[Rfam]
RNA: MIR7486 microRNA precursor family
Organism: Gossypium schwendimanii
RNA sequence: CUUGAAGAAGCGUUUUGUCCACGUGGAUAGAAAUCGCUCUCUUAAGGGUGCGCUUUAUGUCCACGCAGACAAAACGCUUCUUCAAGG
Numbered sequence: 001c002u003u004g005a006a007g008a009a010g011c012g013u014u015u016u017g018u019c020c021a022c023g024u025g026g027a028u029a030g031a032a033a034u035c036g037c038u039c040u041c042u043u044a045a046g047g048g049u050g051c052g053c054u055u056u057a058u059g060u061c062c063a064c065g066c067a068g069a070c071a072a073a074a075c076g077c078u079u080c081u082u083c084a085a086g087g
Stems, first nucleotide, its partner, number of pairs: 001086019023064007031056003035052003040047002